RNA sequence: UUGACAGCUGUGGAGACUGAAGCCCUCUAUUUAUCUACAGAACAGGUAGAGCCUGGGCAGCAGCAGUGCUAGCUUCCACACUUUCCCCACCACCGUGCCUCAGCCCUGACCUGGAAGAACCACCUCUAGAGGUGAGAGGGGAACUCGGCCUCCAUGGCCAUUGAGAGCUUGGCCUCU
Numbered sequence: 001u002u003g004a005c006a007g008c009u010g011u012g013g014a015g016a017c018u019g020a021a022g023c024c025c026u027c028u029a030u031u032u033a034u035c036u037a038c039a040g041a042a043c044a045g046g047u048a049g050a051g052c053c054u055g056g057g058c059a060g061c062a063g064c065a066g067u068g069c070u071a072g073c074u075u076c077c078a079c080a081c082u083u084u085c086c087c088c089a090c091c092a093c094c095g096u097g098c099c100u101c102a103g104c105c106c107u108g109a110c111c112u113g114g115a116a117g118a119a120c121c122a123c124c125u126c127u128a129g130a131g132g133u134g135a136g137a138g139g140g141g142a143a144c145u146c147g148g149c150c151u152c153c154a155u156g157g158c159c160a161u162u163g164a165g166a167g168c169u170u171g172g173c174c175u176c177u
Stems, first nucleotide, its partner, number of pairs: 002164001004162001007158002011154005017148004024141005030136006038108003048100001051098002054095003063085001065083001111129005117123001
This 177-nucleotide sequence from Dromas ardeola belongs to the Rfam family "TUC338". Rfam 15.1 lists 75,615 matches to the family in 527 species. The base pairs follow the family's consensus structure, which was predicted with WAR. On this family, see Braconi et al., Proc Natl Acad Sci U S A 2011: "Expression and functional role of a transcribed noncoding RNA with an ultraconserved element in hepatocellular carcinoma". The family's RNA type in Rfam is cis-regulatory element.